The family of this 82-nucleotide sequence from Toxocara canis is "mir-44 microRNA precursor family". A reference for the family is de Wit et al. (2009), "Repertoire and evolution of miRNA genes in four divergent nematode species", Genome Res.
Nucleotides: 082
Base pairs, nucleotide, nucleotide: 005077006076007075009073012070013069014068015067016066017065018064019063023060027056028055029054030053031052032051033050
Number, partner (000 for none) and nucleotide at each position: 001000g002000a003000g004000a005077c006076g007075u008000g009073a010000a011000a012070c013069u014068g015067g016066a017065u018064g019063u020000c021000u022000c023060u024000c025000g026000c027056g028055g029054u030053c031052a032051u033050a034000a035000c036000g037000u038000u039000g040000a041000u042000c043000g044000g045000c046000u047000a048000u049000c050033u051032a052031u053030g054029a055028c056027u057000a058000g059000a060023g061000a062000c063019a064018c065017a066016u067015u068014c069013a070012g071000c072000u073009u074000g075007g076006c077005g078000a079000c080000u081000c082000g

Rfam links the family to the GO terms RISC complex and miRNA-mediated post-transcriptional gene silencing.
Rfam 15.1 lists 66 matches to the family in 44 species.